[Rfam]
RNA: Archaeal signal recognition particle RNA
Organism: Methanothermococcus sp. SCGC AD-155-M21
RNA sequence: UUCGUGGCUAGGCUGGGGGGUUAGGCGUCCCCUGUAACCUGAAAUCGCCUUAUGCAGGAGCCGAAAACUUGGGGGCGGCAUGGGUUUCCCCUGUCCAUUCCCAGGUUCUACGAUGACAUUUCGUCCUAUGGGGUAAGGCGGUGGAGGAACCUACUUUGUAGAAAGUAGGCAAACCUCCUUAACCUACUGAACCCCGUCAGGCCCGGAAGGGAGCAGCGGUAGGUAGGACGUCGACGCUCAUAGGGUAGCGGAAUGGAGUUGAAUCUGGGGUUAAAUGGAUAGGGGGAGUCCAUGCCCACCCCAAGGAAGCCACAUU
Numbered sequence: 001u002u003c004g005u006g007g008c009u010a011g012g013c014u015g016g017g018g019g020g021u022u023a024g025g026c027g028u029c030c031c032c033u034g035u036a037a038c039c040u041g042a043a044a045u046c047g048c049c050u051u052a053u054g055c056a057g058g059a060g061c062c063g064a065a066a067a068c069u070u071g072g073g074g075g076c077g078g079c080a081u082g083g084g085u086u087u088c089c090c091c092u093g094u095c096c097a098u099u100c101c102c103a104g105g106u107u108c109u110a111c112g113a114u115g116a117c118a119u120u121u122c123g124u125c126c127u128a129u130g131g132g133g134u135a136a137g138g139c140g141g142u143g144g145a146g147g148a149a150c151c152u153a154c155u156u157u158g159u160a161g162a163a164a165g166u167a168g169g170c171a172a173a174c175c176u177c178c179u180u181a182a183c184c185u186a187c188u189g190a191a192c193c194c195c196g197u198c199a200g201g202c203c204c205g206g207a208a209g210g211g212a213g214c215a216g217c218g219g220u221a222g223g224u225a226g227g228a229c230g231u232c233g234a235c236g237c238u239c240a241u242a243g244g245g246u247a248g249c250g251g252a253a254u255g256g257a258g259u260u261g262a263a264u265c266u267g268g269g270g271u272u273a274a275a276u277g278g279a280u281a282g283g284g285g286g287a288g289u290c291c292a293u294g295c296c297c298a299c300c301c302c303a304a305g306g307a308a309g310c311c312a313c314a315u316u
Stems, first nucleotide, its partner, number of pairs: 004313006011062004015033007038058004043053001068305007077296004082290002086287012099270010110259002117255008125244008133235002137232004141180001143178005150169008183227006194219004202211003